[Rfam]
RNA sequence: CUGCACUGAUGAUUGUAGAUGUGACUGACCUGGCACUGCUAGCCUCCGCGUUGGCUUUGGCCAGGAAAUGACCCGCGUUAAUCUUCUCUCUGAGCAG
Numbered sequence: 001c002u003g004c005a006c007u008g009a010u011g012a013u014u015g016u017a018g019a020u021g022u023g024a025c026u027g028a029c030c031u032g033g034c035a036c037u038g039c040u041a042g043c044c045u046c047c048g049c050g051u052u053g054g055c056u057u058u059g060g061c062c063a064g065g066a067a068a069u070g071a072c073c074c075g076c077g078u079u080a081a082u083c084u085u086c087u088c089u090c091u092g093a094g095c096a097g
Base pairs, nucleotide, nucleotide: 003095004094038055039054040053041052
The record is a 97-nucleotide sequence from Sparus aurata, which matches "Z30 small nucleolar RNA" in Rfam. By type it is a C/D-box small nucleolar RNA. On this family, see Galardi et al., Mol Cell Biol 2002: "Purified box C/D snoRNPs are able to reproduce site-specific 2'-O-methylation of target RNA in vitro".